[Rfam]
RNA sequence: GUUGUCGGAUUUGCCUCAGUCCACAUGUGUUGGAGUGGGUUGAGAUGAAAUUUAGUUCAAGUUCCACUCCAAUCCACCUGAACACAUGUGGAUUGAUGCGAAUCCGACU
Number, nucleotide and partner (000 for none) at each position: 001g000002u000003u000004g108005u107006c106007g105008g104009a103010u102011u101012u100013g099014c098015c000016u096017c095018a094019g093020u092021c091022c090023a089024c088025a087026u086027g085028u084029g083030u082031u081032g000033g000034a000035g077036u076037g075038g074039g073040u072041u071042g070043a000044g000045a000046u066047g065048a000049a000050a000051u000052u000053u000054a000055g000056u000057u000058c000059a000060a000061g000062u000063u000064c000065c047066a046067c000068u000069c000070c042071a041072a040073u039074c038075c037076a036077c035078c000079u000080g000081a031082a030083c029084a028085c027086a026087u025088g024089u023090g022091g021092a020093u019094u018095g017096a016097u000098g014099c013100g012101a011102a010103u009104c008105c007106g006107a005108c004109u000
RNA: MIR5565 microRNA precursor family
Organism: Miscanthus lutarioriparius